[Rfam]
RNA sequence: GCGCCAGUCUUUGGGGAGUAGCCUGCUGGGCGCGCAAUGCGCCGCAGAGUGUGCGUCAACAAACUUGGGCCUUCGCGGCCUAUGGCGUACACGGCAUCUGGUGAUGAGGAUGCU
Number, nucleotide and partner (000 for none) at each position: 001g000002c000003g000004c000005c000006a000007g000008u000009c000010u000011u000012u000013g000014g000015g000016g000017a000018g000019u000020a000021g000022c000023c000024u000025g000026c047027u046028g045029g000030g000031c000032g000033c000034g000035c000036a000037a000038u000039g000040c000041g000042c000043c000044g000045c028046a027047g026048a000049g092050u091051g090052u089053g088054c087055g086056u085057c084058a083059a000060c000061a000062a000063a000064c000065u000066u082067g081068g080069g079070c078071c000072u000073u000074c000075g000076c000077g000078g070079c069080c068081u067082a066083u058084g057085g056086c055087g054088u053089a052090c051091a050092c049093g000094g000095c000096a000097u000098c000099u000100g000101g000102u000103g000104a000105u000106g000107a000108g000109g000110a000111u000112g000113c000114u000
The family of this 114-nucleotide RNA from Comamonas sp. JNW is "Manganese Mn2+ riboswitch aptamer (yybP-ykoY)". The base pairs follow the family's consensus structure. The source organism's lineage runs through Bacteria, Pseudomonadati, Pseudomonadota, Betaproteobacteria and Comamonas. This RNA was originally discovered in E. coli during a large scale screen and was named SraF. The family was later found to exist upstream of related families of protein genes in many bacteria, including the the yybP and ykoK genes in B. subtilis. The specific functions of these proteins are unknown, but this structured RNA element may be involved in their genetic regulation as a riboswitch.